[Rfam]
RNA sequence: UCACUUCACAUUCAUGCGGCAAUGCCUAUAUCGGGCGUUGCCGGCUUUCGGGCCGGCUAUGGCGAUAAAGUGCAGUGUGCAAUAGGCGCAGCGGACCCGGGGGCAGUACCCGGCGGCUCCACCACUUUCCCCGGGCCAGGCCCGGGGGACAUGACGGGGCCGAACCAGGAUCGACGUGUGUUGAAAAGCAUUGUUUUCGCCCGGGCUGAGUAACCCGUUCAAGGCUCAAAACUCACAAGUGCCAACGACAACGAAGCACUUGCUCUCGCUGCGUAAUCUGACGGCCUAACGGCCUGAUCUUACAAGGACUUGAGCACGGUUCGGACCGAACCGGGUAACAGAAUCGGAAACC
Number, nucleotide and partner (000 for none) at each position: 001u000002c000003a000004c000005u000006u000007c000008a000009c000010a000011u000012u000013c000014a000015u000016g000017c000018g000019g000020c000021a000022a000023u000024g000025c000026c000027u000028a000029u000030a000031u000032c000033g000034g000035g000036c000037g000038u000039u000040g057041c056042c055043g054044g053045c052046u051047u000048u000049c000050g000051g046052g045053c044054c043055g042056g041057c040058u000059a000060u000061g201062g200063c199064g198065a197066u000067a000068a000069a000070g000071u000072g194073c193074a192075g191076u190077g189078u188079g000080c000081a000082a000083u000084a000085g000086g000087c180088g179089c178090a000091g177092c176093g175094g000095a000096c000097c113098c112099g111100g110101g109102g000103g000104c000105a000106g000107u000108a000109c101110c100111c099112g098113g097114c162115g161116g160117c159118u158119c157120c156121a000122c000123c000124a000125c000126u000127u000128u000129c000130c000131c000132c000133g000134g000135g000136c000137c000138a000139g000140g000141c000142c000143c000144g000145g000146g000147g000148g000149a000150c000151a000152u000153g000154a000155c000156g120157g119158g118159g117160c116161c115162g114163a000164a000165c000166c000167a000168g000169g000170a000171u000172c000173g000174a000175c093176g092177u091178g089179u088180g087181u000182u000183g000184a000185a000186a000187a000188g078189c077190a076191u075192u074193g073194u072195u000196u000197u065198c064199g063200c062201c061202c217203g216204g215205g214206c000207u228208g227209a226210g000211u000212a000213a000214c205215c204216c203217g202218u000219u000220c000221a000222a000223g000224g000225c000226u209227c208228a207229a000230a000231a000232c000233u000234c000235a000236c000237a000238a000239g000240u000241g000242c000243c000244a000245a000246c000247g000248a000249c000250a000251a000252c000253g000254a000255a000256g000257c000258a000259c000260u000261u000262g000263c000264u000265c000266u000267c000268g000269c000270u000271g000272c000273g000274u000275a000276a000277u000278c000279u000280g000281a000282c000283g000284g000285c000286c000287u000288a000289a000290c000291g000292g000293c000294c000295u000296g000297a000298u000299c000300u000301u000302a000303c000304a000305a000306g000307g000308a000309c000310u000311u000312g000313a000314g000315c000316a000317c333318g332319g331320u330321u000322c000323g000324g000325a000326c346327c000328g344329a000330a320331c319332c318333g317334g000335g000336u000337a000338a000339c000340a000341g000342a000343a000344u328345c000346g326347g000348a000349a000350a000351c000352c000

Shown here is a 352-nucleotide RNA sequence from Tsuneonella aeria, a member of the family "Alphaproteobacteria transfer-messenger RNA". The organism belongs to Tsuneonella, within Bacteria. Bacterial tmRNA, also known as 10Sa RNA or SsrA, is named for its dual tRNA and mRNA-like properties. It is annotated as a non-coding RNA gene. A search with the family's covariance model found it, with a score of 224 bits.